The record is a 162-nucleotide RNA from Caenorhabditis japonica, which matches "Caenorhabditis snoRNA ceN104" in Rfam. The match comes from Rfam's covariance-model search (108 bits). Rfam links the family to the GO terms RNA processing and nucleolus. The family has 5 seed sequences and 21 matches in Rfam 15.1. Pairs were carried over by alignment from the consensus structure, which was predicted with RNAalifold.

Nucleotides: 162
Stems, first nucleotide, its partner, number of pairs: 003086006015043001046074004051069002054066002100156006108148001114140005121133003
Number, partner (000 for none) and nucleotide at each position: 001000a002000u003086g004085c005084a006083a007082u008081u009000u010000u011000c012000c013000a014000a015043u016000a017000c018000g019000u020000c021000u022000a023000g024000a025000u026000u027000u028000c029000u030000a031000c032000u033000a034000g035000a036000a037000u038000a039000u040000c041000u042000g043015a044000c045000c046074c047073g048072u049071u050000u051069u052068u053000g054066a055065g056000g057000c058000a059000u060000a061000u062000u063000g064000c065055c066054u067000g068052g069051a070000a071049a072048a073047c074046g075000a076000c077000u078000g079000a080000a081008a082007a083006u084005u085004g086003c087000u088000a089000u090000a091000a092000a093000a094000g095000c096000u097000u098000a099000g100156c101155u102154c103153g104152a105151g106000a107000u108148g109000c110000g111000u112000g113000u114140g115139c116138c117137g118136g119000u120000u121133u122132g123131c124000u125000c126000u127000c128000a129000a130000u131123g132122c133121g134000u135000u136118c137117u138116g139115g140114u141000u142000c143000c144000u145000u146000u147000u148108c149000u150000c151105c152104u153103c154102g155101g156100g157000a158000c159000a160000u161000u162000u